[Rfam]
RNA sequence: UAGUUUUUCUCUUUGGUUAUCUAGCUGUAUGAGUUCAUGCAUAUCAUAAAGCUAGAGAACCGAAAGCAGAAACUA
Dot-bracket structure: (((((.((.(.(((((((.(((((((.(((((...........))))).))))))).))))))).).)).)))))